[Rfam]
RNA sequence: GCCAAGAGUAGAAGCGUUCACCGGCCUGGUGCGGCCGGCCGGAAAUUGCUCUUGAA
Numbered sequence: 001g002c003c004a005a006g007a008g009u010a011g012a013a014g015c016g017u018u019c020a021c022c023g024g025c026c027u028g029g030u031g032c033g034g035c036c037g038g039c040c041g042g043a044a045a046u047u048g049c050u051c052u053u054g055a056a
Stems, first nucleotide, its partner, number of pairs: 005052006015041001018043002021038006
Dot-bracket structure: ....((((((....[..((.((((((......))))))..]))...))))))....

This 56-nucleotide RNA belongs to the Rfam family "Xanthine riboswitch aptamer (NMT1 RNA)". Pairs were carried over by alignment from the consensus structure, which is taken from published work. Gene Ontology term of the family: purine nucleobase binding.